MIR6274 microRNA precursor family: a 105-nucleotide sequence from Prunus yedoensis. Rfam links the family to the GO terms RISC complex and miRNA-mediated post-transcriptional gene silencing.
[Rfam]
RNA sequence: GGAUAGUGGUGUUUUGCUAUCCCCGGCCAAUAACACAAUGACACAUGAAAAAUUAUUCUACGUGUCAUUGUAUUAUUGGCCGGGAAUAGCAAAACACCGUUAUCC
Numbered sequence: 001g002g003a004u005a006g007u008g009g010u011g012u013u014u015u016g017c018u019a020u021c022c023c024c025g026g027c028c029a030a031u032a033a034c035a036c037a038a039u040g041a042c043a044c045a046u047g048a049a050a051a052a053u054u055a056u057u058c059u060a061c062g063u064g065u066c067a068u069u070g071u072a073u074u075a076u077u078g079g080c081c082g083g084g085a086a087u088a089g090c091a092a093a094a095c096a097c098c099g100u101u102a103u104c105c
Stems, first nucleotide, its partner, number of pairs: 002104004012094009022084012035071010046060001047058003

About this RNA: The source organism's lineage runs through Eukaryota, Magnoliopsida, eudicotyledons, Amygdaloideae and Prunus yedoensis.